The record is an 86-nucleotide RNA from Drosophila mojavensis, which matches "mir-31 microRNA precursor family" in Rfam.
The family is grouped with related families in Rfam's "mir-31 microRNA precursor family".
Rfam links the family to the GO terms gene silencing by miRNA and RISC complex.
Rfam 15.1 lists 1,181 matches to the family in 783 species.
A search with the family's covariance model found it, with a score of 57 bits.
RNA sequence: UAUUGUUGAAUUGGCAAGAUGUCGGCAUAGCUGACGUUUCAAAGCGCAUUGCAUAGCGCUAUGCUGCAUCUAGUCAGUUAUUCAAU
Number, nucleotide and partner (000 for none) at each position: 001u000002a000003u000004u000005g083006u000007u000008g000009a079010a078011u077012u076013g075014g074015c073016a000017a071018g070019a069020u068021g067022u000023c066024g065025g064026c063027a062028u061029a060030g059031c058032u000033g000034a000035c000036g000037u000038u000039u000040c000041a000042a000043a000044g000045c000046g000047c000048a000049u000050u000051g000052c000053a000054u000055a000056g000057c000058g031059c030060u029061a028062u027063g026064c025065u024066g023067c021068a020069u019070c018071u017072a000073g015074u014075c013076a012077g011078u010079u009080a000081u000082u000083c005084a000085a000086u000